[Rfam]
Leucine operon leader: a 146-nucleotide RNA from Serratia sp. DD3. The match comes from Rfam's covariance-model search (101 bits).
RNA sequence: GAGAAGCUGACUGCUAUGAUCCGUUUUCACCGUCUACUAAGCCUACUACUAAACGCAUUUUCUUUGCGCGGUAUGCUGGUGGACGAGGUUCAAAGCUAACUCAGUCCAACCACUGUAGAAACCCGCGCUAAUGCGCGGGUUUUUUU
Numbered sequence: 001g002a003g004a005a006g007c008u009g010a011c012u013g014c015u016a017u018g019a020u021c022c023g024u025u026u027u028c029a030c031c032g033u034c035u036a037c038u039a040a041g042c043c044u045a046c047u048a049c050u051a052a053a054c055g056c057a058u059u060u061u062c063u064u065u066g067c068g069c070g071g072u073a074u075g076c077u078g079g080u081g082g083a084c085g086a087g088g089u090u091c092a093a094a095g096c097u098a099a100c101u102c103a104g105u106c107c108a109a110c111c112a113c114u115g116u117a118g119a120a121a122c123c124c125g126c127g128c129u130a131a132u133g134c135g136c137g138g139g140u141u142u143u144u145u146u
Stems, first nucleotide, its partner, number of pairs: 006105005012099001013096003031085009047073004054068004118143011
Rfam classes the family as a cis-regulatory leader. Rfam describes the family as follows. At least 6 amino acid operons are known to be regulated by attenuation. In each a leader sequence of 150-200 bp is found upstream of the first gene in the operon. For this family Rfam cites "Attenuation in amino acid biosynthetic operons" (Kolter and Yanofsky, Annu Rev Genet, 1982). Its family is annotated with leucine biosynthetic process in the Gene Ontology.